[Rfam]
RNA sequence: UGUUAAAAAUUUCAUCCAUUUUUACUAUUAAAAACUAGUCAGUAUAUGUCGCAUGAGGUAUACUUGGCAUGCCAUGCAUCAUUGUCUGGUUAUUCUAUUGGUCACGCUAGUUUUUAACAGUAAAAGUUGAUGAAAUUUUUAAUA
Dot-bracket structure: .(((((((((((((((.(((((((((.((((((..............................................................................)))))).))))))))).))))))))))))))).
Numbered sequence: 001u002g003u004u005a006a007a008a009a010u011u012u013c014a015u016c017c018a019u020u021u022u023u024a025c026u027a028u029u030a031a032a033a034a035c036u037a038g039u040c041a042g043u044a045u046a047u048g049u050c051g052c053a054u055g056a057g058g059u060a061u062a063c064u065u066g067g068c069a070u071g072c073c074a075u076g077c078a079u080c081a082u083u084g085u086c087u088g089g090u091u092a093u094u095c096u097a098u099u100g101g102u103c104a105c106g107c108u109a110g111u112u113u114u115u116a117a118c119a120g121u122a123a124a125a126g127u128u129g130a131u132g133a134a135a136u137u138u139u140u141a142a143u144a
Stems, first nucleotide, its partner, number of pairs: 002143015018127009028117006